[Rfam]
RNA: Small nucleolar RNA Z13/snr52
RNA sequence: GUUGCACGCUUGAUGAAGCAUCUCGGAUGUAAAUUACACUACUCACCGAGAGCGCAAAACCGUGUGGAUAUCUCCGUUGCCUUCCUUCUGACCCAGCUC
Numbered sequence: 001g002u003u004g005c006a007c008g009c010u011u012g013a014u015g016a017a018g019c020a021u022c023u024c025g026g027a028u029g030u031a032a033a034u035u036a037c038a039c040u041a042c043u044c045a046c047c048g049a050g051a052g053c054g055c056a057a058a059a060c061c062g063u064g065u066g067g068a069u070a071u072c073u074c075c076g077u078u079g080c081c082u083u084c085c086u087u088c089u090g091a092c093c094c095a096g097c098u099c
Base pairs, nucleotide, nucleotide: 004097005096024076025075026074027073